About this RNA
Shown here is a 49-nucleotide RNA sequence from Paenirhodobacter hankyongi, a member of the family "Guanidine-II riboswitch aptamer (mini-ykkC)". Pairs were carried over by alignment from the consensus structure, which is taken from published work. Simpler in structure and has fewer highly conserved nucleotide positions than the ykkC-yxkD leader. Despite this each of its two stem-loop structures directly bind free guanidine. Therefore, mini-ykkC RNA motif represents a distinct class of guanidine-sensing RNAs. A search with the family's covariance model found it, with a score of 44 bits. For this family Rfam cites "Biochemical Validation of a Second Guanidine Riboswitch Class in Bacteria" (Sherlock et al., Biochemistry, 2017).
RNA sequence: CGGUCGGGACGACCCGACCAUUCCGGGGCCCAUCGCCGGGACGACCUGG
Numbered sequence: 001c002g003g004u005c006g007g008g009a010c011g012a013c014c015c016g017a018c019c020a021u022u023c024c025g026g027g028g029c030c031c032a033u034c035g036c037c038g039g040g041a042c043g044a045c046c047u048g049g
Stems, first nucleotide, its partner, number of pairs: 002019007036049005